[Rfam]
RNA sequence: GGCUCAGUGAUUACAUGCCUGAUUUAUGGGCAAUAUACGCUAUUCCGAUUGAAUACAUGAGCAGAGGAUUUUUGAGAAUGAAUGAGAGCU
Numbered sequence: 001g002g003c004u005c006a007g008u009g010a011u012u013a014c015a016u017g018c019c020u021g022a023u024u025u026a027u028g029g030g031c032a033a034u035a036u037a038c039g040c041u042a043u044u045c046c047g048a049u050u051g052a053a054u055a056c057a058u059g060a061g062c063a064g065a066g067g068a069u070u071u072u073u074g075a076g077a078a079u080g081a082a083u084g085a086g087a088g089c090u
Base pairs, nucleotide, nucleotide: 001090002089003088004087005086
This 90-nucleotide RNA sequence from Rhododendron williamsianum belongs to the Rfam family "Small nucleolar RNA U54". Rfam 15.1 lists 614 matches to the family in 206 species. A search with the family's covariance model found it, with a score of 46 bits. Rfam classes the family as a C/D-box small nucleolar RNA. U54 is a C/D box small nucleolar RNA, which acts as a methylation guide for 18S ribosomal RNA in plants.